[Rfam]
RNA sequence: AACCUGAUGCUGCUUCCUGCUACAUCAUUUAGGUAAAGAUAAUCUCCUGGAGUAAACAUGAGCGAUAAAAUUAUUCACCUGACAGAU
Dot-bracket structure: .......((.((.((.....(((.(((....((..........))..))).))).....)).)).))...((..((....))..)).
Rfam assigns this 87-nucleotide RNA from Erwinia sp. Leaf53 to the family "TrxA 5' UTR thermometer". Rfam's curators write: Involved in protection against oxidative stress. The pairing is the family consensus, mapped onto this sequence. A reference for the family is Righetti et al. (2016), "Temperature-responsive in vitro RNA structurome of Yersinia pseudotuberculosis", Proc Natl Acad Sci U S A. Rfam classes the family as an RNA thermoregulator. A search with the family's covariance model found it, with a score of 59 bits.